Shown here is a 121-nucleotide RNA sequence from Mesorhizobium denitrificans, a member of the family "Rhizobiales sRNA Atu_C8". By type it is a small RNA. On this family, see Wilms et al., RNA Biol 2012: "Deep sequencing uncovers numerous small RNAs on all four replicons of the plant pathogen Agrobacterium tumefaciens".

[Rfam]
RNA sequence: CAUGAAGAUGGCACUCAUUCUUGUAGUAGGAAGGCGCGUGGGCAUGGCGGUGUAACCGCCGGGCAAGUUCCUCCCAUGCGCUUCAAACAGGCUCCCACCGGGGCCUUUUUUAUUGCCCAAA
Numbered sequence: 001c002a003u004g005a006a007g008a009u010g011g012c013a014c015u016c017a018u019u020c021u022u023g024u025a026g027u028a029g030g031a032a033g034g035c036g037c038g039u040g041g042g043c044a045u046g047g048c049g050g051u052g053u054a055a056c057c058g059c060c061g062g063g064c065a066a067g068u069u070c071c072u073c074c075c076a077u078g079c080g081c082u083u084c085a086a087a088c089a090g091g092c093u094c095c096c097a098c099c100g101g102g103g104c105c106u107u108u109u110u111u112a113u114u115g116c117c118c119a120a121a
Stems, first nucleotide, its partner, number of pairs: 009026001029117002032114001033082010045061006063070001087107001089106007